c-di-AMP riboswitch aptamer (ydaO/yuaA leader): a 150-nucleotide RNA sequence from Actinacidiphila oryziradicis.
RNA sequence: CGACGGGGGACGCCGACGCUCGGAGCCGGGGAACCACGUUCCCGGGGUGAAUCGGCACCAGGGCGCUCCGCAAGGGACGUUGAGGUGUUGUAGGGCUGCUUCCGGCCCGAACCCGUCAGCUCACCCGGUAGGCGGCUGGAGGAAGAAGGA
Numbered sequence: 001c002g003a004c005g006g007g008g009g010a011c012g013c014c015g016a017c018g019c020u021c022g023g024a025g026c027c028g029g030g031g032a033a034c035c036a037c038g039u040u041c042c043c044g045g046g047g048u049g050a051a052u053c054g055g056c057a058c059c060a061g062g063g064c065g066c067u068c069c070g071c072a073a074g075g076g077a078c079g080u081u082g083a084g085g086u087g088u089u090g091u092a093g094g095g096c097u098g099c100u101u102c103c104g105g106c107c108c109g110a111a112c113c114c115g116u117c118a119g120c121u122c123a124c125c126c127g128g129u130a131g132g133c134g135g136c137u138g139g140a141g142g143a144a145g146a147a148g149g150a
Base pairs, nucleotide, nucleotide: 011134012133013132014131019023025129026128027127028126029125030124035044045114046113047112053090054089055088056087057086058085059084093108094107095106096105